[Rfam]
RNA sequence: GGAGUCCGACCUAGAAAGAGUUAGCACCUCAUCUAGUACCGAGACCUUGGAGCCAAAAUCGUGAGACUAGGUUUAAGCGUAGGUCAGGGAUACUGCAAGCCUAAAUGCGUAAGCGUGAAGCAAUUCAGCCUCGUCAUAUAUAAAGUCGUGGGAGCAGAGACGUUCCUUCUCGUUGAAAGCAAUACCGGUUAUAUCGUUAGUGCGAGAUAUAAUGAGAGUUCCACCGGGGUCAAUAAGAGCU
Numbered sequence: 001g002g003a004g005u006c007c008g009a010c011c012u013a014g015a016a017a018g019a020g021u022u023a024g025c026a027c028c029u030c031a032u033c034u035a036g037u038a039c040c041g042a043g044a045c046c047u048u049g050g051a052g053c054c055a056a057a058a059u060c061g062u063g064a065g066a067c068u069a070g071g072u073u074u075a076a077g078c079g080u081a082g083g084u085c086a087g088g089g090a091u092a093c094u095g096c097a098a099g100c101c102u103a104a105a106u107g108c109g110u111a112a113g114c115g116u117g118a119a120g121c122a123a124u125u126c127a128g129c130c131u132c133g134u135c136a137u138a139u140a141u142a143a144a145g146u147c148g149u150g151g152g153a154g155c156a157g158a159g160a161c162g163u164u165c166c167u168u169c170u171c172g173u174u175g176a177a178a179g180c181a182a183u184a185c186c187g188g189u190u191a192u193a194u195c196g197u198u199a200g201u202g203c204g205a206g207a208u209a210u211a212a213u214g215a216g217a218g219u220u221c222c223a224c225c226g227g228g229g230u231c232a233a234u235a236a237g238a239g240c241u
Base pairs, nucleotide, nucleotide: 012035013034014033015032018030019029020028022205024203025202037090039088040087043085045083046082047081048079049078050074051073052072053071054070056068059066060065125235128230129229130228131227132226133225148224149223150222151221152220153219154180155179159174160173161172162171185218188213189212190211191210192209193208194207195206
RNA: Group II catalytic intron D1-D4-6
Organism: Anaeroplasma bactoclasticum